[Rfam]
RNA: L31-Firmicutes ribosomal protein leader
Organism: Eschrichtius robustus
RNA sequence: CUCUGUUUUCUCAAAGAUGGGAGUCAGGGCGGAAAGAG
Number, nucleotide and partner (000 for none) at each position: 001c029002u028003c027004u026005g025006u000007u000008u022009u021010c020011u000012c000013a000014a000015a000016g000017a000018u000019g000020g010021g009022a008023g000024u000025c005026a004027g003028g002029g001030c000031g000032g000033a000034a000035a000036g000037a000038g000